[Rfam]
RNA sequence: GGUACCUUUAAAUCAGUCCUGUGAGGCUGACAAGGUAGGCGGCGUAACUAAGAUUGCAGCUUGUUGGCGCUUUUGCAUACUAAAAAGGCUUCUUGUCAGUGCGACUGACAGGAAGCCUUUUU
Numbered sequence: 001g002g003u004a005c006c007u008u009u010a011a012a013u014c015a016g017u018c019c020u021g022u023g024a025g026g027c028u029g030a031c032a033a034g035g036u037a038g039g040c041g042g043c044g045u046a047a048c049u050a051a052g053a054u055u056g057c058a059g060c061u062u063g064u065u066g067g068c069g070c071u072u073u074u075g076c077a078u079a080c081u082a083a084a085a086a087g088g089c090u091u092c093u094u095g096u097c098a099g100u101g102c103g104a105c106u107g108a109c110a111g112g113a114a115g116c117c118u119u120u121u122u
Stems, first nucleotide, its partner, number of pairs: 003037006013030006044080003049075005055069003085119016
The family of this 122-nucleotide RNA from Thermosinus carboxydivorans is "PyrR binding site". The organism belongs to Thermosinus carboxydivorans, within Bacteria.